The family of this 178-nucleotide RNA from Cyanobacterium sp. T60_A2020_053 is "Antisense RNA which regulates isiA expression". For this family Rfam cites "An internal antisense RNA regulates expression of the photosynthesis gene isiA" (Duhring et al., Proc Natl Acad Sci U S A, 2006). It scores 113 bits against the family's covariance model. Taxonomically the source falls in Cyanobacterium (Bacteria, Bacillati, Cyanobacteriota, Oscillatoriophycideae).

RNA sequence: GAUAACCGUAAAUGGUGGCAAUGUCAAGGGUAGGAUUGGUAAUCAAGCGCACGGUUUGGGUGGUGGAAUCGUAUAAACCGCCCCAAUACAUGGCUUUUCCUGCUAAAAGUAGCGCCCCUGCCCCUAAAAAUAAUAAAUGGUGUCCUAAAAUUAAUCCUAGUUGCUUAGGAUCAUUCCA
Numbered sequence: 001g002a003u004a005a006c007c008g009u010a011a012a013u014g015g016u017g018g019c020a021a022u023g024u025c026a027a028g029g030g031u032a033g034g035a036u037u038g039g040u041a042a043u044c045a046a047g048c049g050c051a052c053g054g055u056u057u058g059g060g061u062g063g064u065g066g067a068a069u070c071g072u073a074u075a076a077a078c079c080g081c082c083c084c085a086a087u088a089c090a091u092g093g094c095u096u097u098u099c100c101u102g103c104u105a106a107a108a109g110u111a112g113c114g115c116c117c118c119u120g121c122c123c124c125u126a127a128a129a130a131u132a133a134u135a136a137a138u139g140g141u142g143u144c145c146u147a148a149a150a151u152u153a154a155u156c157c158u159a160g161u162u163g164c165u166u167a168g169g170a171u172c173a174u175u176c177c178a
Stems, first nucleotide, its partner, number of pairs: 136175006144169005